RNA sequence: CGCGUUUUUGCGCAGGCGGAGCUCGACCGCCCAUUGAAGCGAUGAUCGCGUUCAUCGACGACCAUCGGGCGCCCUACGGGGUCGAGCCGAUCUGCCGCCAGUUGCCGAUCGCCCCU
Numbered sequence: 001c002g003c004g005u006u007u008u009u010g011c012g013c014a015g016g017c018g019g020a021g022c023u024c025g026a027c028c029g030c031c032c033a034u035u036g037a038a039g040c041g042a043u044g045a046u047c048g049c050g051u052u053c054a055u056c057g058a059c060g061a062c063c064a065u066c067g068g069g070c071g072c073c074c075u076a077c078g079g080g081g082u083c084g085a086g087c088c089g090a091u092c093u094g095c096c097g098c099c100a101g102u103u104g105c106c107g108a109u110c111g112c113c114c115c116u
Stems, first nucleotide, its partner, number of pairs: 015031005078115004088111002091108002094105002097102001

This 116-nucleotide sequence from Wenxinia marina belongs to the Rfam family "ALIL pseudoknot". Its family is annotated with positive regulation of translational frameshifting in the Gene Ontology. It is annotated as a cis-regulatory element. The match comes from Rfam's covariance-model search (101 bits).